[Rfam]
RNA sequence: ACCGGUCCUCGGUAGUGGCAUCCGGAACGUCCCUCCAGGCAGGGACCCGACUCCGAGUGCUUCGAUCGAAGACCGGA
Number, nucleotide and partner (000 for none) at each position: 001a000002c076003c075004g074005g073006u072007c071008c000009u069010c068011g067012g066013u065014a000015g000016u000017g061018g060019c059020a058021u057022c000023c055024g054025g053026a052027a000028c000029g051030u050031c049032c000033c000034u000035c000036c000037a000038g000039g000040c000041a000042g000043g000044g000045a000046c000047c000048c000049g031050a030051c029052u026053c025054c024055g023056a000057g021058u020059g019060c018061u017062u000063c000064g000065a013066u012067c011068g010069a009070a000071g007072a006073c005074c004075g003076g002077a000